[Rfam]
RNA sequence: ACAAUGGGUUAAAUUAAUGGCCCCCUAGCACCGCGAGAUGUUAGUGAAAACUCAUCAAAUUGCUGGAACUCCCUAAAGCCUUUAUACCAAAGCGAAAUUAGAAAUGAUAAGCGCGGCUGUGCGAGAGCAGAAAAAAGUUAAAGGAUUGAUUGGAAGCCGCAAGGGAUCUAAUCUUUACAAUGGGCAAUCAGCAGCCAAGCUCCGCAUAAAAGGAGAAGGUUCAACGAACAGAGGGUGAGUAUCUUUAACCGACUUGACCAUAAACGGAUUGACUUUGAUAAUGGAUUUAUCAUCUGAUUUAAUAGUGAUCUGUAUGGCAAGUUUAACAGGUGUUGUCUAUCAGAUUAAAAAUCUUAAAAACGACAGGUUAAAGAUAAUGGUAUGUUCUAGCCCCUACUGAAAGGAUGGG
Dot-bracket structure: .....((((((......)))))).....((........)).........(((((.(....((((((....(((............................................................................................................)))...))))))((.....((.........)).....))...[.[[[[[...).))))).(((((((((...................................................................................................................)))))))))........]]]]]].....(..((....))..)..
This 409-nucleotide RNA from Planktothrix tepida belongs to the Rfam family "Group I catalytic intron". Lineage of the source: Bacteria > Cyanophyceae > Oscillatoriophycideae > Oscillatoriales > Planktothrix tepida. A search with the family's covariance model found it, with a score of 65 bits. A reference for the family is Cech (1990), "Self-splicing of group I introns", Annu Rev Biochem. Group I catalytic introns are large self-splicing ribozymes. They catalyse their own excision from mRNA, tRNA and rRNA precursors in a wide range of organisms. The base pairs follow the family's consensus structure, which is taken from published work.